[Rfam]
RNA: TPP riboswitch aptamer (THI element)
RNA sequence: GUCAGUUGUCUGGGGAGCUUAGAAAUAGGCUGAGAGGGAGUAUGGCUCCGACCCAUGACCUGAUACGGAUAAUGCCGUCGUAGGAAGACAUCCCGCACCGGAU
Numbered sequence: 001g002u003c004a005g006u007u008g009u010c011u012g013g014g015g016a017g018c019u020u021a022g023a024a025a026u027a028g029g030c031u032g033a034g035a036g037g038g039a040g041u042a043u044g045g046c047u048c049c050g051a052c053c054c055a056u057g058a059c060c061u062g063a064u065a066c067g068g069a070u071a072a073u074g075c076c077g078u079c080g081u082a083g084g085a086a087g088a089c090a091u092c093c094c095g096c097a098c099c100g101g102a103u
Stems, first nucleotide, its partner, number of pairs: 007090004011055004017030005037049005059084004065078004